[Rfam]
RNA sequence: UCCAAGGACCGGGCCCCUCUGGCAGUUCGCAGGAACUGUGAUGUCGGACUGGACGU
Numbered sequence: 001u002c003c004a005a006g007g008a009c010c011g012g013g014c015c016c017c018u019c020u021g022g023c024a025g026u027u028c029g030c031a032g033g034a035a036c037u038g039u040g041a042u043g044u045c046g047g048a049c050u051g052g053a054c055g056u
Base pairs, nucleotide, nucleotide: 006050007049009047010046011045012044022039023038024037025036026035027034028033

This 56-nucleotide sequence from Rhodopseudomonas palustris belongs to the Rfam family "terC RNA". Rfam classes the family as a cis-regulatory element. Taxonomically the source falls in Rhodopseudomonas palustris (Bacteria, Alphaproteobacteria, Nitrobacteraceae, Rhodopseudomonas).